[Rfam]
RNA sequence: AACACCGACCCGGGAGAACCGUCGCAAGGACGGUGCCGAAGGAGCAACCGCCCCGGAAACUCUCAGGCCAAAGGGACCGGCCGGUGACA
Numbered sequence: 001a002a003c004a005c006c007g008a009c010c011c012g013g014g015a016g017a018a019c020c021g022u023c024g025c026a027a028g029g030a031c032g033g034u035g036c037c038g039a040a041g042g043a044g045c046a047a048c049c050g051c052c053c054c055g056g057a058a059a060c061u062c063u064c065a066g067g068c069c070a071a072a073g074g075g076a077c078c079g080g081c082c083g084g085u086g087a088c089a
Stems, first nucleotide, its partner, number of pairs: 005084003009080001011079003019033004035068003038064002042062003048056002

Notes
This 89-nucleotide sequence from Rhodobacteraceae bacterium AsT-22 belongs to the Rfam family "Glycine riboswitch aptamer". Pairs were carried over by alignment from the consensus structure. This family represents the bacterial glycine riboswitch. The source organism's lineage runs through Bacteria, Pseudomonadati, Pseudomonadota, Alphaproteobacteria and Paracoccaceae.